Annotation:
Shown here is a 68-nucleotide sequence from Oceanobacillus profundus, a member of the family "Bacillaceae-1 RNA". The family's RNA type in Rfam is small RNA.

RNA sequence: GAACAAGGACCUUCGACUAAAAACCGACCCAUCCUGUGUCGAAAGUCGAAGCCACCAUAUCCUGUGGA
Number, nucleotide and partner (000 for none) at each position: 001g000002a000003a000004c000005a000006a000007g000008g000009a000010c000011c051012u050013u049014c048015g047016a046017c045018u000019a000020a000021a000022a000023a000024c000025c000026g040027a039028c038029c000030c036031a000032u000033c000034c000035u000036g030037u000038g028039u027040c026041g000042a000043a000044a000045g017046u016047c015048g014049a013050a012051g011052c000053c000054a000055c067056c066057a065058u064059a000060u000061c000062c000063u000064g058065u057066g056067g055068a000